[Rfam]
RNA sequence: CUGAAGGUACGGCGAUAUGGUGCCAACGACGACAAUGGGUAAAAUCGUCGGAGGUGUAUGCUCGCUGAGCGGCGUGCUCGUCAUCGCCCUGCCGGUGCCGGUCAUCGUUUCAAAU
Numbered sequence: 001c002u003g004a005a006g007g008u009a010c011g012g013c014g015a016u017a018u019g020g021u022g023c024c025a026a027c028g029a030c031g032a033c034a035a036u037g038g039g040u041a042a043a044a045u046c047g048u049c050g051g052a053g054g055u056g057u058a059u060g061c062u063c064g065c066u067g068a069g070c071g072g073c074g075u076g077c078u079c080g081u082c083a084u085c086g087c088c089c090u091g092c093c094g095g096u097g098c099c100g101g102u103c104a105u106c107g108u109u110u111c112a113a114a115u
Base pairs, nucleotide, nucleotide: 002114006111009108010107011106012105014103015102016101019098022096023095038078039077040076041075051063052062
RNA: Potassium channel RNA editing signal
Organism: Romanomermis culicivorax